[Rfam]
RNA: TPP riboswitch aptamer (THI element)
RNA sequence: CUGCCGUACCGCGGGAGCCCACGAUCCGAGGCUGAGAGGGCGGCAGGCGGCCGUCGACCGUUCGAACCUGAUCCGGUUCAGACCGGCGUAGGGAGGCUGCCUUGUCGCGCAC
Numbered sequence: 001c002u003g004c005c006g007u008a009c010c011g012c013g014g015g016a017g018c019c020c021a022c023g024a025u026c027c028g029a030g031g032c033u034g035a036g037a038g039g040g041c042g043g044c045a046g047g048c049g050g051c052c053g054u055c056g057a058c059c060g061u062u063c064g065a066a067c068c069u070g071a072u073c074c075g076g077u078u079c080a081g082a083c084c085g086g087c088g089u090a091g092g093g094a095g096g097c098u099g100c101c102u103u104g105u106c107g108c109g110c111a112c
Stems, first nucleotide, its partner, number of pairs: 006100003010096001011061004017032003039055005067092004073086004